[Rfam]
RNA sequence: GGUUGUAACUCCGGCGAGUUGGAGGCGUUCUGGACGGGGGUUCGAUUCCCCCCACCUCUACCCAAGUGCAUGCGCGAGCGUGCCUUUCGGUGGGGGUGUCCCGGUUCCGACAGGGCGAGCGAAGGUGAGCAGGCAACCCAAGAGGCGACGGGCGUAAUCCGCGCAAAACCACAAACGCCAACGAUGAGCGUUUUGUCGUAGCCGCCUAA
Numbered sequence: 001g002g003u004u005g006u007a008a009c010u011c012c013g014g015c016g017a018g019u020u021g022g023a024g025g026c027g028u029u030c031u032g033g034a035c036g037g038g039g040g041u042u043c044g045a046u047u048c049c050c051c052c053c054a055c056c057u058c059u060a061c062c063c064a065a066g067u068g069c070a071u072g073c074g075c076g077a078g079c080g081u082g083c084c085u086u087u088c089g090g091u092g093g094g095g096g097u098g099u100c101c102c103g104g105u106u107c108c109g110a111c112a113g114g115g116c117g118a119g120c121g122a123a124g125g126u127g128a129g130c131a132g133g134c135a136a137c138c139c140a141a142g143a144g145g146c147g148a149c150g151g152g153c154g155u156a157a158u159c160c161g162c163g164c165a166a167a168a169c170c171a172c173a174a175a176c177g178c179c180a181a182c183g184a185u186g187a188g189c190g191u192u193u194u195g196u197c198g199u200a201g202c203c204g205c206c207u208a209a
Base pairs, nucleotide, nucleotide: 001138002137003136004135005134015127016126026117027116028115030113031112032111036052037051038050039049040048053098054097055096056095057094058093059092060091061090139154
The record is a 209-nucleotide RNA sequence from a Zoogloeaceae bacterium, which matches "permuted transfer-messenger RNA" in Rfam. Its family is annotated with RNA catabolic process in the Gene Ontology. Rfam's curators put it in the seed alignment.